This 132-nucleotide sequence from Oryctolagus cuniculus belongs to the Rfam family "Small nucleolar RNA SNORA68".
The literature on the family includes a 1997 paper in Genes Dev by Ganot et al., "The family of box ACA small nucleolar RNAs is defined by an evolutionarily conserved secondary structure and ubiquitous sequence elements essential for RNA accumulation".
From the family's description: U68 is a member of the H/ACA class of small nucleolar RNAs (snoRNAs) which act as guides in the the modification of uridines to pseudouridines.
A search with the family's covariance model found it, with a score of 51 bits.

RNA sequence: GAUCCACUUUCAAACACAUCAUCUCUGUUGCCAUGGCAGCUUUUUAAGCACAAGUGAGCAUCACAAGCAGAUCUUGCUGCCUUUGGGUGCUGUGGCUGUGCCCCUGGAAGUGAACCUAGAGAUCCUACACCC
Numbered sequence: 001g002a003u004c005c006a007c008u009u010u011c012a013a014a015c016a017c018a019u020c021a022u023c024u025c026u027g028u029u030g031c032c033a034u035g036g037c038a039g040c041u042u043u044u045u046a047a048g049c050a051c052a053a054g055u056g057a058g059c060a061u062c063a064c065a066a067g068c069a070g071a072u073c074u075u076g077c078u079g080c081c082u083u084u085g086g087g088u089g090c091u092g093u094g095g096c097u098g099u100g101c102c103c104c105u106g107g108a109a110g111u112g113a114a115c116c117u118a119g120a121g122a123u124c125c126u127a128c129a130c131c132c
Stems, first nucleotide, its partner, number of pairs: 003058001005056005021043001025039005070124006081110004085105003089101002